Rfam assigns this 105-nucleotide RNA from Citricoccus sp. SGAir0253 to the family "SAM riboswitch aptamer (S box leader)". About the family: The SAM riboswitch is found upstream of a number of genes which code for proteins involved in methionine or cysteine biosynthesis in Gram-positive bacteria. The SAM riboswitch acts at the level of transcription termination control. The predicted structure consists of a complex stem-loop region followed by a single stem loop terminator region. An alternative and mutually exclusive form involves bases in the 3' segment of helix 1 with those in the 5' region of helix 5 to form a structure termed the anti-terminator form. This entry represents the conserved core of the complex structure involving helices 1-4.
RNA sequence: CGACCAUCCCGAGCGGCCGAGAGAUCUGGCUCCGUGACGCCGCAGCAACCCGCGGGACCGGCAGUGCGCCGGCCCGCCAGGUGCUACCGCCAGAUUCGAUGGAAA
Numbered sequence: 001c002g003a004c005c006a007u008c009c010c011g012a013g014c015g016g017c018c019g020a021g022a023g024a025u026c027u028g029g030c031u032c033c034g035u036g037a038c039g040c041c042g043c044a045g046c047a048a049c050c051c052g053c054g055g056g057a058c059c060g061g062c063a064g065u066g067c068g069c070c071g072g073c074c075c076g077c078c079a080g081g082u083g084c085u086a087c088c089g090c091c092a093g094a095u096u097c098g099a100u101g102g103a104a105a
Stems, first nucleotide, its partner, number of pairs: 004102005013043005021032003026093004044085004049081002052077004089097001